[Rfam]
RNA sequence: UUCUUAUUGGAUGAUAACUGUCACGUGUCAUGUUUUGAUUGGUCAAUGAAAACAAUAAUGCAUUUCAUCUUUCACGGAAUUAACAUCCAAUCAGAAAAUGACAUCUGACGGUCAUCAUCC
Numbered sequence: 001u002u003c004u005u006a007u008u009g010g011a012u013g014a015u016a017a018c019u020g021u022c023a024c025g026u027g028u029c030a031u032g033u034u035u036u037g038a039u040u041g042g043u044c045a046a047u048g049a050a051a052a053c054a055a056u057a058a059u060g061c062a063u064u065u066c067a068u069c070u071u072u073c074a075c076g077g078a079a080u081u082a083a084c085a086u087c088c089a090a091u092c093a094g095a096a097a098a099u100g101a102c103a104u105c106u107g108a109c110g111g112u113c114a115u116c117a118u119c120c
Base pairs, nucleotide, nucleotide: 020109021108022107023106025104026103029100030099031098033096034095035094036093038091039090040089041088042087
Background: A member of the RNA family "MIR1520 microRNA precursor family" from Glycine soja, 120 nucleotides long. It scores 115 bits against the family's covariance model. The family is grouped with related families in Rfam's "MIR1520 microRNA precursor clan".